[Rfam]
RNA sequence: AGCUUUGGCAGUGGCAGUAUCAUACAUAGCCAGUGGGGUUUAUCUGAGGUGCAAUGAUUACUAAUUGAAAACUUUUUCCAAUACACCGCAGUGACGACUUGAAAUAUAGUCAACAUUGGCAAUUUUUGACAGUCUCUAUGGAUA
Numbered sequence: 001a002g003c004u005u006u007g008g009c010a011g012u013g014g015c016a017g018u019a020u021c022a023u024a025c026a027u028a029g030c031c032a033g034u035g036g037g038g039u040u041u042a043u044c045u046g047a048g049g050u051g052c053a054a055u056g057a058u059u060a061c062u063a064a065u066u067g068a069a070a071a072c073u074u075u076u077u078c079c080a081a082u083a084c085a086c087c088g089c090a091g092u093g094a095c096g097a098c099u100u101g102a103a104a105u106a107u108a109g110u111c112a113a114c115a116u117u118g119g120c121a122a123u124u125u126u127u128g129a130c131a132g133u134c135u136c137u138a139u140g141g142a143u144a
Base pairs, nucleotide, nucleotide: 019055020054023051029050030049031048037045038044088120089119091116092115093114096111097110098109099108133144135142136141

U4 spliceosomal RNA: a 144-nucleotide RNA sequence from Myotis myotis. Rfam's curators write: U4 small nuclear RNA (U4 snRNA) is a component of the major U2-dependent spliceosome. Lineage of the source: Eukaryota > Opisthokonta > Gnathostomata > Dipnotetrapodomorpha > Myotis. By type it is a spliceosomal small nuclear RNA.